[Rfam]
RNA sequence: CGUUGCAACAACCCCGUGGUUUGGGCGCAGUGGGGCAAGGUAUUUGUCCGGUGCGCAGUGAAGCCACUGCAACA
Number, nucleotide and partner (000 for none) at each position: 001c000002g073003u072004u071005g070006c069007a068008a000009c000010a000011a000012c000013c060014c058015c000016g067017u066018g065019g064020u063021u062022u061023g059024g000025g056026c055027g054028c053029a052030g000031u050032g049033g048034g047035g000036c000037a000038a000039g000040g000041u000042a000043u000044u000045u000046g000047u034048c033049c032050g031051g000052u029053g028054c027055g026056c025057a000058g014059u023060g013061a022062a021063g020064c019065c018066a017067c016068u007069g006070c005071a004072a003073c002074a000
RNA: nadA riboswitch